[Rfam]
RNA sequence: CAGCGGGACCGGGCCCCUCUGGCGAGCGAUGCAAGCGCUUGUGAUGUCGGACCGCAUCG
Numbered sequence: 001c002a003g004c005g006g007g008a009c010c011g012g013g014c015c016c017c018u019c020u021g022g023c024g025a026g027c028g029a030u031g032c033a034a035g036c037g038c039u040u041g042u043g044a045u046g047u048c049g050g051a052c053c054g055c056a057u058c059g
Stems, first nucleotide, its partner, number of pairs: 006053002009050004022042007
terC RNA: a 59-nucleotide sequence from Caulobacter vibrioides. Pairs were carried over by alignment from the consensus structure, which is taken from published work.